The record is a 183-nucleotide sequence from Agrilus planipennis, which matches "R2 RNA element" in Rfam. A reference for the family is Ruschak et al. (2004), "Secondary structure models of the 3' untranslated regions of diverse R2 RNAs", RNA. Rfam 15.1 lists 3,698 matches to the family in 74 species. The family's consensus secondary structure is taken from published work. From the family's description: This family represents the 3' UTR region of the R2 retrotransposable element.

RNA sequence: AAAUAGUUUAGGAUAUGGGUUGCUAUAGCUUUAGGCCUGAAGAGGACCUUCAUUGGUCCUAGAACGGCCUGAGGUAGAGGGAUUUUAGUCGGUAGGUCCUAGGACUUCUUCCUCGGGAAUACGACACUACCCAGUCGUACGGACGGCUGGGUGUCUUUUGAAGAUUUCCCCUCUUCCACGAAA
Numbered sequence: 001a002a003a004u005a006g007u008u009u010a011g012g013a014u015a016u017g018g019g020u021u022g023c024u025a026u027a028g029c030u031u032u033a034g035g036c037c038u039g040a041a042g043a044g045g046a047c048c049u050u051c052a053u054u055g056g057u058c059c060u061a062g063a064a065c066g067g068c069c070u071g072a073g074g075u076a077g078a079g080g081g082a083u084u085u086u087a088g089u090c091g092g093u094a095g096g097u098c099c100u101a102g103g104a105c106u107u108c109u110u111c112c113u114c115g116g117g118a119a120u121a122c123g124a125c126a127c128u129a130c131c132c133a134g135u136c137g138u139a140c141g142g143a144c145g146g147c148u149g150g151g152u153g154u155c156u157u158u159u160g161a162a163g164a165u166u167u168c169c170c171c172u173c174u175u176c177c178a179c180g181a182a183a
Base pairs, nucleotide, nucleotide: 034048035047037045038043053182054181056179057178073177074176076174077173079170080169081168088125089124090123091122097117098116099115101113102112103111104110127153129152130151131150132149133148
Dot-bracket structure: .................................((.((....).).))....((.((...............((.((.(((......((((.....(((.((((.....)))).)))....)))).(.(((((..............))))))..............)))..)).)))).)).